RNA sequence: GCGAGCGACUCUGGAGAGACCGGUUCACCGGCGCCGAAGGGGCAAGGACGGCAGGACGCCGCCCCAAACUCUCAGGCAAAAGGACAGAGGGGCAUUC
Numbered sequence: 001g002c003g004a005g006c007g008a009c010u011c012u013g014g015a016g017a018g019a020c021c022g023g024u025u026c027a028c029c030g031g032c033g034c035c036g037a038a039g040g041g042g043c044a045a046g047g048a049c050g051g052c053a054g055g056a057c058g059c060c061g062c063c064c065c066a067a068a069c070u071c072u073c074a075g076g077c078a079a080a081a082g083g084a085c086a087g088a089g090g091g092g093c094a095u096u097c
Stems, first nucleotide, its partner, number of pairs: 006092001009089005020031004033077003036073002040071003046064002
RNA: Glycine riboswitch aptamer